[Rfam]
RNA sequence: CUCGACAAAGGCAAACCUAUCGAAAGGUAGGGACGCAAAGCUAGAGGGCCUUCCCGUAAGGAUGGCAGCCAGCUCCCGAAA
Numbered sequence: 001c002u003c004g005a006c007a008a009a010g011g012c013a014a015a016c017c018u019a020u021c022g023a024a025a026g027g028u029a030g031g032g033a034c035g036c037a038a039a040g041c042u043a044g045a046g047g048g049c050c051u052u053c054c055c056g057u058a059a060g061g062a063u064g065g066c067a068g069c070c071a072g073c074u075c076c077c078g079a080a081a
Stems, first nucleotide, its partner, number of pairs: 003078002011036002016031006034068001039074004046070002048066003
Notes
The record is an 81-nucleotide RNA from Cohnella abietis, which matches "c-di-GMP-I-GGC riboswitch aptamer" in Rfam. Gene Ontology term of the family: cyclic-di-GMP binding.